Record summary
Shown here is a 74-nucleotide RNA from Tupaia belangeri, a member of the family "Small nucleolar RNA SNORD66". On this family, see Huttenhofer et al., EMBO J 2001: "RNomics: an experimental approach that identifies 201 candidates for novel, small, non-messenger RNAs in mouse". Rfam describes the family as follows. snoRNA HBII-142 is part of the C/D family of snoRNAs. It is the human orthologue of the mouse MBII-142 snoRNA and is predicted to guide 2'O-ribose methylation of small 18S rRNA at residue C1272. Its family is annotated with nucleolus and RNA processing in the Gene Ontology. The base pairs follow the family's consensus structure, which was predicted with RNAalifold. Rfam classes the family as a C/D-box small nucleolar RNA.
RNA sequence: CUUCGCUGUUGUGUCUCGGUCAGUUCUUUGUUCGGGACACUGAGGACCUGGGAGGACACUGAGGACCUGGGAAG
Number, nucleotide and partner (000 for none) at each position: 001c074002u073003u072004c071005g000006c000007u000008g000009u000010u000011g000012u000013g000014u000015c000016u000017c000018g000019g000020u000021c000022a000023g000024u000025u000026c000027u000028u000029u000030g000031u000032u000033c000034g000035g000036g000037a000038c000039a000040c000041u000042g000043a000044g000045g000046a000047c000048c000049u000050g000051g000052g000053a000054g000055g000056a000057c000058a000059c000060u000061g000062a000063g000064g000065a000066c000067c000068u000069g000070g000071g004072a003073a002074g001